[Rfam]
RNA: TPP riboswitch aptamer (THI element)
Organism: Rhodoglobus vestalii
RNA sequence: ACUUGUGACACGGGGUGCCCUGCGGGGCUGAGAUAACACCCGUCGAACCUGAUCUAGUUAGAACUAGCGAAGGGAUGUCGCGCAUGUCGCGU
Dot-bracket structure: .....(((((((((.(((((....)))).......)..)))).....(((...((((......))))...)))..)))))............